[Rfam]
RNA sequence: ACAAAUUGUAGAGGUGCAAAUGCGAUAAGUAUAUCUUUUGAGUGGAAAACGAUGAGAAAGAUGGAAAGGCGUAUUUGCCGAAAUCAAUUAAGCGUCAUCUUAAUUGGUUGGGGUCGUUACCGAAAGGAACGACACUGUCGUAAUCAUCUUUAUGGUUACGGAGUGCUACUGUUAGG
Numbered sequence: 001a002c003a004a005a006u007u008g009u010a011g012a013g014g015u016g017c018a019a020a021u022g023c024g025a026u027a028a029g030u031a032u033a034u035c036u037u038u039u040g041a042g043u044g045g046a047a048a049a050c051g052a053u054g055a056g057a058a059a060g061a062u063g064g065a066a067a068g069g070c071g072u073a074u075u076u077g078c079c080g081a082a083a084u085c086a087a088u089u090a091a092g093c094g095u096c097a098u099c100u101u102a103a104u105u106g107g108u109u110g111g112g113g114u115c116g117u118u119a120c121c122g123a124a125a126g127g128a129a130c131g132a133c134a135c136u137g138u139c140g141u142a143a144u145c146a147u148c149u150u151u152a153u154g155g156u157u158a159c160g161g162a163g164u165g166c167u168a169c170u171g172u173u174a175g176g
Base pairs, nucleotide, nucleotide: 006171008169009168010167011166016078017077018076019075020074021073022072023071024070032063033062034061035060036059037058038057039056082109083108084107085106086105087104088103089102090101091100092099110136111135113133114132115131116130117129118128120126138161139160140159141158142157143156144155

Record summary
This 176-nucleotide sequence from Targowskia paracuniculus belongs to the Rfam family "Lysine riboswitch aptamer". Lineage of the source: Bacteria > Pseudomonadati > Gammaproteobacteria > Pasteurellales > Targowskia.